This 105-nucleotide sequence from Clostridium tepidiprofundi belongs to the Rfam family "Glycine riboswitch aptamer". Lineage of the source: Bacteria > Bacillati > Clostridia > Clostridiaceae > Clostridium tepidiprofundi. The match comes from Rfam's covariance-model search (59 bits).
RNA sequence: UGACACACCCCUGGAGAGACUCAUUAAAUUGAGCAUCGAAGAAGAAACUCAGUAGGGAUAUAAUCCUCUGAGGAAACUUUCAGAUAAAAGGACAGGGAGCAAAUA
Numbered sequence: 001u002g003a004c005a006c007a008c009c010c011c012u013g014g015a016g017a018g019a020c021u022c023a024u025u026a027a028a029u030u031g032a033g034c035a036u037c038g039a040a041g042a043a044g045a046a047a048c049u050c051a052g053u054a055g056g057g058a059u060a061u062a063a064u065c066c067u068c069u070g071a072g073g074a075a076a077c078u079u080u081c082a083g084a085u086a087a088a089a090g091g092a093c094a095g096g097g098a099g100c101a102a103a104u105a
Base pairs, nucleotide, nucleotide: 009097010096011095012094013093020033021032022031023030035085036084037083038081039080042079043078044077048072049071050070051069052068